[Rfam]
RNA sequence: UACUAAAAAGGCAAAAUUGUCGUAAGGCAGUGACGCAAAGCCACAGAUCCUGACUGAAAAAGGCAGGAUGGCUGGGUUGCAGAUG
Numbered sequence: 001u002a003c004u005a006a007a008a009a010g011g012c013a014a015a016a017u018u019g020u021c022g023u024a025a026g027g028c029a030g031u032g033a034c035g036c037a038a039a040g041c042c043a044c045a046g047a048u049c050c051u052g053a054c055u056g057a058a059a060a061a062g063g064c065a066g067g068a069u070g071g072c073u074g075g076g077u078u079g080c081a082g083a084u085g
Base pairs, nucleotide, nucleotide: 001085003082004081011036012035016031017030018029019028020027021026034071039078040077041076042075044074045073046072047069048068049067050066051065052064
Dot-bracket structure: (.((......((...((((((....))))))..[))..((((.(((((((((...........)))))).])))))))..))..)